[Rfam]
RNA sequence: UCAGCAGGAUAGUGUGUAUCGGCUUUAUGCUUUCUUCUGUGCAUUUUUGCCGAAAGUGUUUCCUGCCAUAUAGACUGAAGGAAAGUGGGCAGUUGGGUUAAGCUUACAUUUUGUUUUCUCCAACAAUCAUUUUCCUCUCAUGU
Numbered sequence: 001u002c003a004g005c006a007g008g009a010u011a012g013u014g015u016g017u018a019u020c021g022g023c024u025u026u027a028u029g030c031u032u033u034c035u036u037c038u039g040u041g042c043a044u045u046u047u048u049g050c051c052g053a054a055a056g057u058g059u060u061u062c063c064u065g066c067c068a069u070a071u072a073g074a075c076u077g078a079a080g081g082a083a084a085g086u087g088g089g090c091a092g093u094u095g096g097g098u099u100a101a102g103c104u105u106a107c108a109u110u111u112u113g114u115u116u117u118c119u120c121c122a123a124c125a126a127u128c129a130u131u132u133u134c135c136u137c138u139c140a141u142g143u
Stems, first nucleotide, its partner, number of pairs: 004066005009060001014044006079136010092124004
Annotation: The record is a 143-nucleotide RNA sequence from Eragrostis curvula, which matches "small nucleolar RNA snoR135" in Rfam. A reference for the family is Chen and Wu (2009), "Mining small RNA sequencing data: a new approach to identify small nucleolar RNAs in Arabidopsis", Nucleic Acids Res. It is annotated as an H/ACA-box small nucleolar RNA. It scores 114 bits against the family's covariance model. Lineage of the source: Eukaryota > Euphyllophyta > Liliopsida > Chloridoideae > Eragrostis.